[Rfam]
RNA sequence: CCCACACCCAUGUGUGUAGGACCCCAAAUGAUCACCAUUAAAUUUGGUACAAAUCUCUAAAAAAGUUAUCAGAUGGGUAUAGGAUUUGACUUUUUUAGAAAUCUGUGUCAAAUUUAAUGGUGAUCUUUUAAGGUCCUACACACAUGGGUGUGGG
Numbered sequence: 001c002c003c004a005c006a007c008c009c010a011u012g013u014g015u016g017u018a019g020g021a022c023c024c025c026a027a028a029u030g031a032u033c034a035c036c037a038u039u040a041a042a043u044u045u046g047g048u049a050c051a052a053a054u055c056u057c058u059a060a061a062a063a064a065g066u067u068a069u070c071a072g073a074u075g076g077g078u079a080u081a082g083g084a085u086u087u088g089a090c091u092u093u094u095u096u097a098g099a100a101a102u103c104u105g106u107g108u109c110a111a112a113u114u115u116a117a118u119g120g121u122g123a124u125c126u127u128u129u130a131a132g133g134u135c136c137u138a139c140a141c142a143c144a145u146g147g148g149u150g151u152g153g154g
Base pairs, nucleotide, nucleotide: 002153003152004151005150006149007148008147009146010145011144012143013142015140016139017138018137019136020135021134022133023132026129027128028127030125031124032123034121035120036119037118038117039116040115041114042113043112044111045110046109047108048107049106050105051104053102054101056099057098058097059096060095061094062093063092064091065090066089067088068087069082071080073078
RNA: MIR8565 microRNA precursor family
Organism: Amborella trichopoda